RNA: Glycine riboswitch aptamer
RNA sequence: AUGAGGGUCAUGGGAGAGUCCGCUUUGGAGGCGGCACCGAAGGAGCAAAUAGCCGGCCAUGCGGGGCGGCUUUGAAUCUCUCAGGUACAAGGACCAUGGCCUGACG
Number, nucleotide and partner (000 for none) at each position: 001a000002u000003g000004a000005g000006g101007g100008u099009c098010a097011u096012g095013g094014g000015a000016g000017a000018g000019u000020c034021c033022g032023c031024u000025u000026u000027g000028g000029a000030g000031g023032c022033g021034g020035c000036a086037c085038c084039g082040a081041a000042g000043g080044a079045g078046c000047a000048a000049a073050u000051a000052g000053c000054c000055g000056g000057c000058c000059a000060u000061g000062c000063g000064g000065g000066g000067c000068g000069g000070c000071u000072u000073u049074g000075a000076a000077u000078c045079u044080c043081u040082c039083a000084g038085g037086u036087a000088c000089a000090a000091g000092g000093a000094c013095c012096a011097u010098g009099g008100c007101c006102u000103g000104a000105c000106g000